[Rfam]
Notes:
The record is a 53-nucleotide sequence from Gossypium gossypioides, which matches "Plastid-atpF group II-D1 intron" in Rfam. A reference for the family is Richter et al. (2023), "Retrograde signaling in plants: A critical review focusing on the GUN pathway and beyond", Plant Commun. Rfam describes the family as follows. Plastid atpF is a non-coding RNA (ncRNA) recognised in plastids. It has been reported in the intron group II-D1 region of ATP synthase (atpF) genes. The base pairs follow the family's consensus structure, which was predicted with LocARNA. A search with the family's covariance model found it, with a score of 53 bits. The family has 49 seed sequences and 1,372 matches in Rfam 15.1. Rfam links the family to the GO term Group II intron splicing.

RNA sequence: AAAAAUAUUUUUUAUAUAAAACACUCAUAUCAAUAAAAUGAUUUGAGCCCCUU
Numbered sequence: 001a002a003a004a005a006u007a008u009u010u011u012u013u014a015u016a017u018a019a020a021a022c023a024c025u026c027a028u029a030u031c032a033a034u035a036a037a038a039u040g041a042u043u044u045g046a047g048c049c050c051c052u053u
Stems, first nucleotide, its partner, number of pairs: 011033002014030004